This 91-nucleotide sequence from Medicago truncatula belongs to the Rfam family "MIR5298 microRNA precursor family".
RNA sequence: UCAAGUUUUCUUCAUUAUCUUCUGGAAUUUUUCUAGGAUUCUUGUUAUUGAAAGUUGAUGGAGAUGAUAUGAAGAUGAAAAAGAGGAGAAG
Numbered sequence: 001u002c003a004a005g006u007u008u009u010c011u012u013c014a015u016u017a018u019c020u021u022c023u024g025g026a027a028u029u030u031u032u033c034u035a036g037g038a039u040u041c042u043u044g045u046u047a048u049u050g051a052a053a054g055u056u057g058a059u060g061g062a063g064a065u066g067a068u069a070u071g072a073a074g075a076u077g078a079a080a081a082a083g084a085g086g087a088g089a090a091g
Stems, first nucleotide, its partner, number of pairs: 006084004011079006018072002037056004042051002
It scores 76 bits against the family's covariance model.